[Rfam]
RNA sequence: AGACGUUGAAGUGGAGUUUCUCUGCCCAGAAGGAGUGCUUCACGGAGUCCCCUGACGGUUCUGUAUUCACCAAGAGUUGGGCUUAGGUCAUUCGCGAGUGGCUGAAAGAAAAAUACCGUAA
Numbered sequence: 001a002g003a004c005g006u007u008g009a010a011g012u013g014g015a016g017u018u019u020c021u022c023u024g025c026c027c028a029g030a031a032g033g034a035g036u037g038c039u040u041c042a043c044g045g046a047g048u049c050c051c052c053u054g055a056c057g058g059u060u061c062u063g064u065a066u067u068c069a070c071c072a073a074g075a076g077u078u079g080g081g082c083u084u085a086g087g088u089c090a091u092u093c094g095c096g097a098g099u100g101g102c103u104g105a106a107a108g109a110a111a112a113a114u115a116c117c118g119u120a121a
Stems, first nucleotide, its partner, number of pairs: 002049003011043006018037001020035004025080002028077001063116003086103007
A member of the RNA family "drum RNA" from Treponema saccharophilum, 121 nucleotides long. The family's RNA type in Rfam is small RNA. The source organism's lineage runs through Bacteria, Pseudomonadati, Spirochaetota, Treponematales and Treponema saccharophilum.